Annotation:
Shown here is a 546-nucleotide part of an RNA from Saccharicrinis fermentans, a member of the family "Bacterial large subunit ribosomal RNA". Gene Ontology terms of the family: structural constituent of ribosome and ribosome. The family's consensus secondary structure is taken from published work.
[Rfam]
RNA sequence: UAAGCAAGGGCGCACGGUGGAUGCCUAGGCUUUCAGAGGCGACGAAAGACGUGAUAAGCUGCGAUAAGCCACGGGGAGAAGCAAAUAUUUGUUGAUCCGUGGAUUUCUGAAUGGGGCAACCCGUCCGGUUGAUGACCGGUCACUCCGCAAGGAGGGCAAACCCAGGGAACUGAAACAUCUAAGUACCUGGAGGAGAAGAAAAUAAUAAUGAUUCCCCUAGUAGCGGCGAGCGAACGGGGAUUAGCCCAAACCUACAAUGUUUAGGCAUUGUAGGGGUUAUAGGACCACAACAUGAAUAUAAAAUAGAAGUAGAACGUUUUGGAAAGAACGACCAAAGAAGGUGAUAGUCCAGUACACGUAAUAUUUUAUAGGAUAGUGGUAUCCUGAGUAGGUCGGGACACGUGAAAUCCUGUCUGAAUUUGCCGGGCCCAUCCGGUAAGGCUAAAUACUCCUGAAAGACCGAUAGUGAACCAGUACCGUGAGGGAAAGGUGAAAAGUACCCCUAACAGGGGAGUGAAAUAGUACCUGAAACCGUGCGCUUACAAG
Numbered sequence: 001u002a003a004g005c006a007a008g009g010g011c012g013c014a015c016g017g018u019g020g021a022u023g024c025c026u027a028g029g030c031u032u033u034c035a036g037a038g039g040c041g042a043c044g045a046a047a048g049a050c051g052u053g054a055u056a057a058g059c060u061g062c063g064a065u066a067a068g069c070c071a072c073g074g075g076g077a078g079a080a081g082c083a084a085a086u087a088u089u090u091g092u093u094g095a096u097c098c099g100u101g102g103a104u105u106u107c108u109g110a111a112u113g114g115g116g117c118a119a120c121c122c123g124u125c126c127g128g129u130u131g132a133u134g135a136c137c138g139g140u141c142a143c144u145c146c147g148c149a150a151g152g153a154g155g156g157c158a159a160a161c162c163c164a165g166g167g168a169a170c171u172g173a174a175a176c177a178u179c180u181a182a183g184u185a186c187c188u189g190g191a192g193g194a195g196a197a198g199a200a201a202a203u204a205a206u207a208a209u210g211a212u213u214c215c216c217c218u219a220g221u222a223g224c225g226g227c228g229a230g231c232g233a234a235c236g237g238g239g240a241u242u243a244g245c246c247c248a249a250a251c252c253u254a255c256a257a258u259g260u261u262u263a264g265g266c267a268u269u270g271u272a273g274g275g276g277u278u279a280u281a282g283g284a285c286c287a288c289a290a291c292a293u294g295a296a297u298a299u300a301a302a303a304u305a306g307a308a309g310u311a312g313a314a315c316g317u318u319u320u321g322g323a324a325a326g327a328a329c330g331a332c333c334a335a336a337g338a339a340g341g342u343g344a345u346a347g348u349c350c351a352g353u354a355c356a357c358g359u360a361a362u363a364u365u366u367u368a369u370a371g372g373a374u375a376g377u378g379g380u381a382u383c384c385u386g387a388g389u390a391g392g393u394c395g396g397g398a399c400a401c402g403u404g405a406a407a408u409c410c411u412g413u414c415u416g417a418a419u420u421u422g423c424c425g426g427g428c429c430c431a432u433c434c435g436g437u438a439a440g441g442c443u444a445a446a447u448a449c450u451c452c453u454g455a456a457a458g459a460c461c462g463a464u465a466g467u468g469a470a471c472c473a474g475u476a477c478c479g480u481g482a483g484g485g486a487a488a489g490g491u492g493a494a495a496a497g498u499a500c501c502c503c504u505a506a507c508a509g510g511g512g513a514g515u516g517a518a519a520u521a522g523u524a525c526c527u528g529a530a531a532c533c534g535u536g537c538g539c540u541u542a543c544a545a546g
Base pairs, nucleotide, nucleotide: 008541009540010539011538012537013536014535015534016533017532023526024490025489028461029460030458031457032456033455034454035453036452037450038449039157040156047108048107049106050063051062052061069102070101071100072099073098074097075096078090079089080088113122114121115120123141125139126138127137128136129135143154144153145152146151161192162190163189164188165187166186172179173178202209203208212446213240214239215238216237217236223231224230243443244442245441246440251274252273253272254271255270256269257268281385282384283383285379286378287377288376297370298369299368300367301366302365303364304363305362309357310356315330316329317328318327319326333337340350341349391415392414394412395411396410397409398408422437423436424435425434426433477484478483500512501511502510503509